[Rfam]
RNA sequence: GUCACGGUCCAGACGAAAUCGAACGGCAAGGAGCGGGGGACCCAAGAGUUCCUCGGCGCUGACGCGCCUCGGGGUGAAGCCGCCACACGGCGGCCGGGCACCUCUGCCCGAACCCGACAGCUGACCUCGUAGGCGUGGAGGACAAGCUCA
Numbered sequence: 001g002u003c004a005c006g007g008u009c010c011a012g013a014c015g016a017a018a019u020c021g022a023a024c025g026g027c028a029a030g031g032a033g034c035g036g037g038g039g040a041c042c043c044a045a046g047a048g049u050u051c052c053u054c055g056g057c058g059c060u061g062a063c064g065c066g067c068c069u070c071g072g073g074g075u076g077a078a079g080c081c082g083c084c085a086c087a088c089g090g091c092g093g094c095c096g097g098g099c100a101c102c103u104c105u106g107c108c109c110g111a112a113c114c115c116g117a118c119a120g121c122u123g124a125c126c127u128c129g130u131a132g133g134c135g136u137g138g139a140g141g142a143c144a145a146g147c148u149c150a
Stems, first nucleotide, its partner, number of pairs: 002032002033130006043071001072115003080093004096109004
The family of this 150-nucleotide RNA from Actinoplanes campanulatus is "c-di-AMP riboswitch aptamer (ydaO/yuaA leader)". NCBI's taxonomy places the organism under Bacteria, Bacillati, Actinomycetota, Micromonosporales, Actinoplanes. The base pairs follow the family's consensus structure. Rfam's curators write: This family represents a conserved RNA structure found upstream of the ydaO and yuaA genes in Bacillus subtilis and related genes in other bacteria.